Shown here is a 371-nucleotide sequence from Orthopestivirus tauri, a member of the family "Pestivirus internal ribosome entry site (IRES) including 5'UTR SLI". It is one of the family's seed sequences. Rfam links the family to the GO term ribosome binding. The base pairs follow the family's consensus structure. For this family Rfam cites "A stem-loop motif formed by the immediate 5' terminus of the bovine viral diarrhea virus genome modulates translation as well as replication of the viral RNA" (Yu et al., J Virol, 2000). Rfam describes the family as follows. This family represents the internal ribosome entry site (IRES) of the the pestiviruses. The pestivirus IRES allows cap and end-independent translation of mRNA in the host cell. The IRES achieves this by mediating the internal initiation of translation by recruiting a ribosomal 43S pre-initiation complex directly to the initiation codon and eliminates the requirement for eIF4F. The classical swine virus UTR described in appears to be longer at the 5' end than other pestivirus UTRs. This family represents the conserved core.

RNA sequence: AAAGUACUCGUAUACGGAUUGGACGUUGACAAAAUAUUGAAUUGAAAAUGUAGGGAAUCUUCCCCUCAGCGAAGGCCGAAAAGAGGCUAACCACGCCCUUAGUAGGACUAGCAAAAGGAGGGGACUAGCGGUAGCAGUGAGUUCAUUGGAUGGCCGAACCCCUGAGUACAGGGGAGUCGUCAAUGGUUCGACACUCCUUCAGUUGAGGAGUCUCGAGAUGCCAUGUGGACGAGGGCAUGCCCACGGCACAUCUUAACCCAUGCGGGGGCUGCAUGGGUGAAAGCGCCAUUCGUGGCGUUAUGGACACAGCCUGAUAGGGUGUAGCAGAGACCUGCUAUCCCGCUAGUAAAAAACUCUGCUGUACAUGGCAC
Numbered sequence: 001a002a003a004g005u006a007c008u009c010g011u012a013u014a015c016g017g018a019u020u021g022g023a024c025g026u027u028g029a030c031a032a033a034a035u036a037u038u039g040a041a042u043u044g045a046a047a048a049u050g051u052a053g054g055g056a057a058u059c060u061u062c063c064c065c066u067c068a069g070c071g072a073a074g075g076c077c078g079a080a081a082a083g084a085g086g087c088u089a090a091c092c093a094c095g096c097c098c099u100u101a102g103u104a105g106g107a108c109u110a111g112c113a114a115a116a117g118g119a120g121g122g123g124a125c126u127a128g129c130g131g132u133a134g135c136a137g138u139g140a141g142u143u144c145a146u147u148g149g150a151u152g153g154c155c156g157a158a159c160c161c162c163u164g165a166g167u168a169c170a171g172g173g174g175a176g177u178c179g180u181c182a183a184u185g186g187u188u189c190g191a192c193a194c195u196c197c198u199u200c201a202g203u204u205g206a207g208g209a210g211u212c213u214c215g216a217g218a219u220g221c222c223a224u225g226u227g228g229a230c231g232a233g234g235g236c237a238u239g240c241c242c243a244c245g246g247c248a249c250a251u252c253u254u255a256a257c258c259c260a261u262g263c264g265g266g267g268g269c270u271g272c273a274u275g276g277g278u279g280a281a282a283g284c285g286c287c288a289u290u291c292g293u294g295g296c297g298u299u300a301u302g303g304a305c306a307c308a309g310c311c312u313g314a315u316a317g318g319g320u321g322u323a324g325c326a327g328a329g330a331c332c333u334g335c336u337a338u339c340c341c342g343c344u345a346g347u348a349a350a351a352a353a354c355u356c357u358g359c360u361g362u363a364c365a366u367g368g369c370a371c
Stems, first nucleotide, its partner, number of pairs: 062123006069112002074109002076106002081100003085097003124347007131338007138308002141305006148253005153247004159174006177232005183224005188216004193211006233242003256278010283298006309320004322361008